[Rfam]
RNA sequence: CCGGAGGGCCGGGCGGCCGCGUCGCGAUUCGUCGCGCCGAGGAAAGUCCGGGCUCCACGAAACGACGGUGGCGGGUAACGCCCGCCGGUCCGGGCUUCGGCCCGGGUCAGGGAAAGUGCCACAGAGAGCAGACGGCGACCACUUCGGUGACGCCACGGUGAAAGGGUGCGGCAAGAGCGCACCGCGCGGCUGGCGACAGUCGCGGCACGGCAAACCCCACCGGGAGCAAGACCGAAUAGGGACGGCACAUGGGUGUGUUUCCACCCGUCGUCCGGGUUGGUCGCUUGAGCGCGUCGGCAACGGCGCGCCUAGAGGAAUGGUCGCCCAUCCGGUUUCGGCCGGUGGACAGAACCCGGCUUACAGGCCCUCCGGCGCC
Numbered sequence: 001c002c003g004g005a006g007g008g009c010c011g012g013g014c015g016g017c018c019g020c021g022u023c024g025c026g027a028u029u030c031g032u033c034g035c036g037c038c039g040a041g042g043a044a045a046g047u048c049c050g051g052g053c054u055c056c057a058c059g060a061a062a063c064g065a066c067g068g069u070g071g072c073g074g075g076u077a078a079c080g081c082c083c084g085c086c087g088g089u090c091c092g093g094g095c096u097u098c099g100g101c102c103c104g105g106g107u108c109a110g111g112g113a114a115a116g117u118g119c120c121a122c123a124g125a126g127a128g129c130a131g132a133c134g135g136c137g138a139c140c141a142c143u144u145c146g147g148u149g150a151c152g153c154c155a156c157g158g159u160g161a162a163a164g165g166g167u168g169c170g171g172c173a174a175g176a177g178c179g180c181a182c183c184g185c186g187c188g189g190c191u192g193g194c195g196a197c198a199g200u201c202g203c204g205g206c207a208c209g210g211c212a213a214a215c216c217c218c219a220c221c222g223g224g225a226g227c228a229a230g231a232c233c234g235a236a237u238a239g240g241g242a243c244g245g246c247a248c249a250u251g252g253g254u255g256u257g258u259u260u261c262c263a264c265c266c267g268u269c270g271u272c273c274g275g276g277u278u279g280g281u282c283g284c285u286u287g288a289g290c291g292c293g294u295c296g297g298c299a300a301c302g303g304c305g306c307g308c309c310u311a312g313a314g315g316a317a318u319g320g321u322c323g324c325c326c327a328u329c330c331g332g333u334u335u336c337g338g339c340c341g342g343u344g345g346a347c348a349g350a351a352c353c354c355g356g357c358u359u360a361c362a363g364g365c366c367c368u369c370c371g372g373c374g375c376c
Base pairs, nucleotide, nucleotide: 001372002371003370004369005368006367007366008365009364010363011361012325013324014323015322016321017320018319020039021038023036024035025034026033027032044359045358046357048356049355050354051353052352053226054225055224056223061260062259066222067221068220069219070218071085072084073083074082075081086110087108088107089106090105091104092103093102094101095100111217112216116215117214118211119210120209133157134156135153136152137151139149140147165183166182167181168180169179170178184206185204186203187202188201189200190199191198192197230282231281232280233279240273241272242271243270244269245268251266252265253264254263255262289308290307291306292305293304294303295302296301
Description: The record is a 376-nucleotide sequence from Sphingomonas sp. Leaf412, which matches "Bacterial RNase P class A" in Rfam. Ribonuclease P (RNase P) is a ubiquitous endoribonuclease, found in archaea, bacteria and eukarya as well as chloroplasts and mitochondria. It scores 274 bits against the family's covariance model. By type it is a ribozyme.